SAM riboswitch aptamer (S box leader): an 87-nucleotide RNA sequence from Fusobacterium gonidiaformans. Rfam's curators write: The SAM riboswitch is found upstream of a number of genes which code for proteins involved in methionine or cysteine biosynthesis in Gram-positive bacteria. Rfam's curators put it in the seed alignment.

RNA sequence: AUACCAUCAAGAGAGAUUGAGGGACAGGCCCGAAGAUAUCUCAGCAACCUACUGAAAUGUGUGGUGCUAACUCCUGUUAGAUGGAAG
Number, nucleotide and partner (000 for none) at each position: 001a000002u086003a000004c084005c083006a082007u081008c080009a000010a000011g000012a000013g042014a041015g040016a039017u038018u000019g000020a000021g031022g030023g029024a000025c076026a075027g074028g073029c023030c022031c021032g000033a000034a000035g000036a000037u000038a017039u016040c015041u014042c013043a068044g067045c066046a065047a000048c064049c063050u061051a060052c059053u000054g000055a000056a000057a000058u000059g052060u051061g050062u000063g049064g048065u046066g045067c044068u043069a000070a000071c000072u079073c028074c027075u026076g025077u000078u000079a072080g008081a007082u006083g005084g004085a000086a002087g000